This 31-nucleotide sequence from Sander lucioperca belongs to the Rfam family "Iron response element II".
About the family: IRE, TFRC, SLC40A1, SDHB, SLC11A2, CDC42BPA, ACO2, ALAS2_H.SAPIENS, CDC14A, EPAS1, ALAS2, qoxD, Hao1, NDUFS1, transferrin, Aconitate.
The organism belongs to Sander, within Eukaryota.
The family's RNA type in Rfam is cis-regulatory element.
A reference for the family is Koeller et al. (1989), "A cytosolic protein binds to structural elements within the iron regulatory region of the transferrin receptor mRNA", Proc Natl Acad Sci U S A.
RNA sequence: AAGUUAUCGGGAGCAGUGUUUUCCAUAACUA
Dot-bracket structure: .((((((.((((((...).))))))))))).